[Rfam]
RNA sequence: ACUGUCUCCAGCCUGCUGAAGCUCAGAGGGCUCUGAUUCAGAAAGAUCAUCGGAUCCGUCUGAGCUUGGCUGGUCGGAAGUC
Numbered sequence: 001a002c003u004g005u006c007u008c009c010a011g012c013c014u015g016c017u018g019a020a021g022c023u024c025a026g027a028g029g030g031c032u033c034u035g036a037u038u039c040a041g042a043a044a045g046a047u048c049a050u051c052g053g054a055u056c057c058g059u060c061u062g063a064g065c066u067u068g069g070c071u072g073g074u075c076g077g078a079a080g081u082c
Stems, first nucleotide, its partner, number of pairs: 007078003011074003015070003019067009029057002032054006038046002
RNA: mir-127 microRNA precursor family